[Rfam]
RNA sequence: UUCAUUUCCUUCUUUAAGACUCUAGUACAUUAUGUCUUUAUUGGUCAUUCAAGUGGGGCAAAGAAAAUAUCCUUUUAAAACUCAAACAUACUGGGUGUUUGUCUUGUAACCUAUCAGAGGAAACAAAC
Number, nucleotide and partner (000 for none) at each position: 001u000002u000003c000004a000005u000006u000007u000008c000009c000010u000011u000012c000013u000014u000015u000016a000017a000018g000019a000020c000021u000022c000023u000024a000025g000026u000027a000028c000029a000030u000031u000032a000033u060034g059035u058036c057037u056038u000039u000040a000041u052042u051043g050044g049045u000046c000047a000048u000049u044050c043051a042052a041053g000054u000055g000056g037057g036058g035059c034060a033061a000062a000063g000064a000065a000066a000067a000068u000069a000070u121071c120072c119073u118074u117075u116076u000077a000078a000079a000080a000081c000082u000083c106084a104085a000086a102087c101088a100089u000090a098091c097092u000093g000094g000095g000096u000097g091098u090099u000100u088101g087102u086103c000104u084105u000106g083107u000108a000109a000110c000111c000112u000113a000114u000115c000116a075117g074118a073119g072120g071121a070122a000123a000124c000125a000126a000127a000128c000
The family of this 128-nucleotide RNA sequence from Vicugna pacos is "Small nucleolar RNA SNORA27".
Pairs were carried over by alignment from the consensus structure.
Rfam 15.1 lists 819 matches to the family in 543 species.
Rfam links the family to the GO terms nucleolus and RNA processing.
ACA27 is a member of the H/ACA class of snoRNA that guide the sites of modification of uridines to pseudouridines.
Clan: SNORA27 clan.
NCBI's taxonomy places the organism under Eukaryota, Dipnotetrapodomorpha, Eutheria, Artiodactyla, Vicugna.